RNA: MIR162_1 microRNA precursor family
RNA sequence: GGUGAAGUCACUAGAGGCAAGCGGUUCAUCGAUCUCUUCCUAAAAUGUUUUGUGAACAAGAAAACACAGAACAUGAAUCGAUCAAUAAACCUCUGCAUCCAACGUUAGGUCU
Numbered sequence: 001g002g003u004g005a006a007g008u009c010a011c012u013a014g015a016g017g018c019a020a021g022c023g024g025u026u027c028a029u030c031g032a033u034c035u036c037u038u039c040c041u042a043a044a045a046u047g048u049u050u051u052g053u054g055a056a057c058a059a060g061a062a063a064a065c066a067c068a069g070a071a072c073a074u075g076a077a078u079c080g081a082u083c084a085a086u087a088a089a090c091c092u093c094u095g096c097a098u099c100c101a102a103c104g105u106u107a108g109g110u111c112u
Base pairs, nucleotide, nucleotide: 014099015098018095019094021093023091024090025089026088028086029085031083032082033081034080037077038076039075